[Rfam]
RNA sequence: AACAAGCUUCGGGGCAGGGUGCGAUUCCCUACCGGCAGUUAUAGUCUGCGACCGCCUUAAUGGCGCUGAACGGGUGUGAUUCCCGUACCGACGGUAUAGUCCGGAUGAUAGAAGCAAUAU
Numbered sequence: 001a002a003c004a005a006g007c008u009u010c011g012g013g014g015c016a017g018g019g020u021g022c023g024a025u026u027c028c029c030u031a032c033c034g035g036c037a038g039u040u041a042u043a044g045u046c047u048g049c050g051a052c053c054g055c056c057u058u059a060a061u062g063g064c065g066c067u068g069a070a071c072g073g074g075u076g077u078g079a080u081u082c083c084c085g086u087a088c089c090g091a092c093g094g095u096a097u098a099g100u101c102c103g104g105a106u107g108a109u110a111g112a113a114g115c116a117a118u119a120u
Stems, first nucleotide, its partner, number of pairs: 006115005017029003031100002033090002035049004044088002053065002070086005092103003
The family of this 120-nucleotide RNA from Ruminococcus sp. CAG:382 is "FMN riboswitch aptamer (RFN element)". Lineage of the source: Bacteria > Bacillota > Eubacteriales > Oscillospiraceae > Ruminococcus. The RFN element is a highly conserved domain that is found frequently in the 5'-untranslated regions of prokaryotic mRNAs that encode for flavin mononucleotide (FMN) biosynthesis and transport proteins. This element is a metabolite-dependent riboswitch that directly binds FMN in the absence of proteins. In Bacillus subtilis, the riboswitch most likely controls gene expression by causing premature transcription termination within the 5' untranslated region of the ribDEAHT operon and precluding access to the ribosome-binding site of ypaA mRNA.The FMN riboswitch structure, reported in present an FMN-bound six-stem junction, adopts a butterfly-like scaffold, stapled together by opposingly directed but nearly identically folded peripheral domains. It scores 104 bits against the family's covariance model.